Overview:
This 167-nucleotide sequence from Paraglaciecola sp. MB-3u-78 belongs to the Rfam family "Group II catalytic intron D1-D4-3". NCBI's taxonomy places the organism under Bacteria, Pseudomonadati, Gammaproteobacteria, Alteromonadales, Paraglaciecola.

RNA sequence: UCACUGGCUAACGGUGGGGUGUGAAGGAAGCCAUAGGAAGUUAGCGAUACACAGCGUAAGCGAACCUGUUUCGGCGUGGUGGGUGGGUAAGCGUGCAAAAUAGCGCAACGCCCAAUACUCAAUCAGACCCAUUACGUGUUUGAGGGUGGAAUAGCUAAUAGGGAGCC
Number, nucleotide and partner (000 for none) at each position: 001u017002c016003a015004c014005u013006g012007g000008c000009u000010a000011a000012c006013g005014g004015u003016g002017g001018g000019g000020u000021g000022u000023g000024a000025a000026g000027g000028a000029a000030g000031c000032c000033a000034u000035a000036g000037g000038a000039a000040g000041u158042u157043a156044g155045c154046g000047a152048u150049a000050c148051a147052c146053a000054g000055c000056g000057u000058a000059a000060g000061c000062g000063a000064a000065c145066c144067u143068g000069u000070u000071u000072c000073g000074g137075c136076g135077u000078g133079g132080u131081g130082g129083g128084u127085g113086g112087g111088u110089a000090a000091g106092c105093g104094u103095g000096c000097a000098a000099a000100a000101u000102a000103g094104c093105g092106c091107a000108a000109c000110g088111c087112c086113c085114a000115a000116u000117a000118c000119u000120c000121a000122a000123u000124c000125a000126g000127a084128c083129c082130c081131a080132u079133u078134a000135c076136g075137u074138g000139u000140u000141u000142g000143a067144g066145g065146g052147u051148g050149g000150a048151a000152u047153a000154g045155c044156u043157a042158a041159u000160a000161g000162g000163g000164a000165g000166c000167c000